[Rfam]
Background
This 112-nucleotide RNA from Cuscuta australis belongs to the Rfam family "MIR398 microRNA precursor family". The family's consensus secondary structure was predicted with WAR. It scores 63 bits against the family's covariance model. On this family, see Jones-Rhoades and Bartel, Mol Cell 2004: "Computational identification of plant microRNAs and their targets, including a stress-induced miRNA".
RNA sequence: AAAUGUUCAAUAGGGUCGGCAUGAGAAUACAUGGGUGUGCUGCUUGUGGCCUUUAAGUUACAAUUAAUGCAUCAUAAUGUAUGUGUUCUCAGGUCGCCCCUGUUGAAUUAUC
Numbered sequence: 001a002a003a004u005g006u007u008c009a010a011u012a013g014g015g016u017c018g019g020c021a022u023g024a025g026a027a028u029a030c031a032u033g034g035g036u037g038u039g040c041u042g043c044u045u046g047u048g049g050c051c052u053u054u055a056a057g058u059u060a061c062a063a064u065u066a067a068u069g070c071a072u073c074a075u076a077a078u079g080u081a082u083g084u085g086u087u088c089u090c091a092g093g094u095c096g097c098c099c100c101u102g103u104u105g106a107a108u109u110a111u112c
Base pairs, nucleotide, nucleotide: 007106008105011102012101013100014099017096018095019094023090024089025088026087027086028085029084030083031082032081